[Rfam]
RNA sequence: GAUAAACUAUGUCCUAGAAUCAUAGUCGCCGAAAGUUUAAGGGUUUCGAAUGAUAAGAGUUCGACUUAUUCGAUUAAAACGGCCCCUAAGGUCAAAGCGAAAGCUGUAGCCGAUGGGAUGUUUCUUUAAAAGGAACUUCUUUUUGUGUAUGACGAAGAAACAAUGGUAUGUAUAAUUUCGAUUAUUAUGCUAGUUUCUUCCAGGAAAAAGUCACAAAAGUAUAAGACCGUACCCCAAACCGACACAGGUAAAUUGGUAGAGAAUACUAAGGCGCGUGAGUAAACCAAGUUUAAGGAACUCGGCAAAAUGACCUCGUAACUUCGGGAGAAGAGGUACUCUUUUUUGAGAGUGACACAAAAUCGGGGGUAACGACUGUUUAAUAAAAACACAUGACUCUGCUAAAUCGUAAGAUGAUGUAUAGGGUCUGACACCUGCCCGGUGCCAGAAGGCUAAAAGGAGAUGUGCAAGCUUCGAAUUGAAUCCCUGGUAAACGGCGGCCGUAACUCUGACGGUCCUAAGGUAGCGAAAUUCCUUGUCGAUUAACUGUCGACCUGCAUGAAUGGUGUAACGAUUUCCCCACUGUCUCAAACUUGGACUCA
Numbered sequence: 001g002a003u004a005a006a007c008u009a010u011g012u013c014c015u016a017g018a019a020u021c022a023u024a025g026u027c028g029c030c031g032a033a034a035g036u037u038u039a040a041g042g043g044u045u046u047c048g049a050a051u052g053a054u055a056a057g058a059g060u061u062c063g064a065c066u067u068a069u070u071c072g073a074u075u076a077a078a079a080c081g082g083c084c085c086c087u088a089a090g091g092u093c094a095a096a097g098c099g100a101a102a103g104c105u106g107u108a109g110c111c112g113a114u115g116g117g118a119u120g121u122u123u124c125u126u127u128a129a130a131a132g133g134a135a136c137u138u139c140u141u142u143u144u145g146u147g148u149a150u151g152a153c154g155a156a157g158a159a160a161c162a163a164u165g166g167u168a169u170g171u172a173u174a175a176u177u178u179c180g181a182u183u184a185u186u187a188u189g190c191u192a193g194u195u196u197c198u199u200c201c202a203g204g205a206a207a208a209a210g211u212c213a214c215a216a217a218a219g220u221a222u223a224a225g226a227c228c229g230u231a232c233c234c235c236a237a238a239c240c241g242a243c244a245c246a247g248g249u250a251a252a253u254u255g256g257u258a259g260a261g262a263a264u265a266c267u268a269a270g271g272c273g274c275g276u277g278a279g280u281a282a283a284c285c286a287a288g289u290u291u292a293a294g295g296a297a298c299u300c301g302g303c304a305a306a307a308u309g310a311c312c313u314c315g316u317a318a319c320u321u322c323g324g325g326a327g328a329a330g331a332g333g334u335a336c337u338c339u340u341u342u343u344u345g346a347g348a349g350u351g352a353c354a355c356a357a358a359a360u361c362g363g364g365g366g367u368a369a370c371g372a373c374u375g376u377u378u379a380a381u382a383a384a385a386a387c388a389c390a391u392g393a394c395u396c397u398g399c400u401a402a403a404u405c406g407u408a409a410g411a412u413g414a415u416g417u418a419u420a421g422g423g424u425c426u427g428a429c430a431c432c433u434g435c436c437c438g439g440u441g442c443c444a445g446a447a448g449g450c451u452a453a454a455a456g457g458a459g460a461u462g463u464g465c466a467a468g469c470u471u472c473g474a475a476u477u478g479a480a481u482c483c484c485u486g487g488u489a490a491a492c493g494g495c496g497g498c499c500g501u502a503a504c505u506c507u508g509a510c511g512g513u514c515c516u517a518a519g520g521u522a523g524c525g526a527a528a529u530u531c532c533u534u535g536u537c538g539a540u541u542a543a544c545u546g547u548c549g550a551c552c553u554g555c556a557u558g559a560a561u562g563g564u565g566u567a568a569c570g571a572u573u574u575c576c577c578c579a580c581u582g583u584c585u586c587a588a589a590c591u592u593g594g595a596c597u598c599a
Stems, first nucleotide, its partner, number of pairs: 006026006027273004035253004041233002046073006058066002080229003085116002090111003094107001096105003120136005139225002141218002145214003150209001154200004165191005170179001239248002255267004276599004284594008293585003310334005319324001335350006351355001363578004368573002370570002374388003392425007399416001403412003429565004434495003439492002441488005448483002454477002459472002462469002496514006515519001525552001535551006